The family of this 74-nucleotide RNA sequence from Erpetoichthys calabaricus is "mir-148/mir-152 microRNA precursor family". On this family, see Lagos-Quintana et al., Curr Biol 2002: "Identification of tissue-specific microRNAs from mouse". Its family is annotated with miRNA-mediated post-transcriptional gene silencing and RISC complex in the Gene Ontology. Pairs were carried over by alignment from the consensus structure, which was predicted with RNAalifold.
RNA sequence: CCAAACUAAAGUUCUGUGGUACACUUGGACUCUUCAUUGUUUGCAGUCAGUGCAUUACAGAACUUUGUUUUGGG
Numbered sequence: 001c002c003a004a005a006c007u008a009a010a011g012u013u014c015u016g017u018g019g020u021a022c023a024c025u026u027g028g029a030c031u032c033u034u035c036a037u038u039g040u041u042u043g044c045a046g047u048c049a050g051u052g053c054a055u056u057a058c059a060g061a062a063c064u065u066u067g068u069u070u071u072g073g074g
Base pairs, nucleotide, nucleotide: 004070005069007067008066009065010064011063012062013061014060015059016058022052023051024050025049028048029047030046031045